This 251-nucleotide sequence from Pneumocystis sp. 'macacae' belongs to the Rfam family "Fungal signal recognition particle RNA". A search with the family's covariance model found it, with a score of 65 bits. The base pairs follow the family's consensus structure, which is taken from published work. Gene Ontology terms of the family: signal recognition particle, plasma membrane targeting, SRP-dependent cotranslational protein targeting to membrane, signal sequence recognition and signal recognition particle, endoplasmic reticulum targeting. Lineage of the source: Eukaryota > Opisthokonta > Fungi > Dikarya > Pneumocystis. For this family Rfam cites "Prediction of signal recognition particle RNA genes" (Regalia et al., Nucleic Acids Res, 2002).
RNA sequence: CGACUGUUAUGGUUGCGGGAAGCACGUAUCUCCGUACACACGUCUGUGCUGUGCACAGCUCCGCAGGCUUCGUGUUCGAGUCUCGAGUCUGGCACGUCACACACCGCGAAGGCUCUGUGCUGCGUGUCAUGCAAAGCGCUGUACCGUCUGAGGGGAGCAUCAUCCAGCAGGACACCGCGCUGCCCGGGACACGGAACACGAGGAAGUCAGCGGGCACGGUAACAGGCAAGGAACGCGUGUCGACUCGCUUU
Numbered sequence: 001c002g003a004c005u006g007u008u009a010u011g012g013u014u015g016c017g018g019g020a021a022g023c024a025c026g027u028a029u030c031u032c033c034g035u036a037c038a039c040a041c042g043u044c045u046g047u048g049c050u051g052u053g054c055a056c057a058g059c060u061c062c063g064c065a066g067g068c069u070u071c072g073u074g075u076u077c078g079a080g081u082c083u084c085g086a087g088u089c090u091g092g093c094a095c096g097u098c099a100c101a102c103a104c105c106g107c108g109a110a111g112g113c114u115c116u117g118u119g120c121u122g123c124g125u126g127u128c129a130u131g132c133a134a135a136g137c138g139c140u141g142u143a144c145c146g147u148c149u150g151a152g153g154g155g156a157g158c159a160u161c162a163u164c165c166a167g168c169a170g171g172a173c174a175c176c177g178c179g180c181u182g183c184c185c186g187g188g189a190c191a192c193g194g195a196a197c198a199c200g201a202g203g204a205a206g207u208c209a210g211c212g213g214g215c216a217c218g219g220u221a222a223c224a225g226g227c228a229a230g231g232a233a234c235g236c237g238u239g240u241c242g243a244c245u246c247g248c249u250u251u
Base pairs, nucleotide, nucleotide: 001015002014003013004012016247017246018245019244023239024238025237026236027235029233031232032231033230035228037226044225045224046223047222048059049058050057051056060216061213062212063211064210066208067207068206069205070204071200072199073198074197075196076194077193078192080190081189082188083187084186085185087183089131090129091128092127093126094125095124096123097122100119101118102117103116106113107112135181136180137179138178139177141175146173147172148171149170154165155164156163
Dot-bracket structure: ((((.......))))((((...(((((.(.(((.(.(......((((((((....))))(((((.(((((((((((((.((((((.(.(((((((((..((((..((....))..))))..)))))))).)...(((((.(....((((....(((......)))....)))).).))))).).)))))).))).)))))...))))).))))..).....))))).).)))).)))))....))))....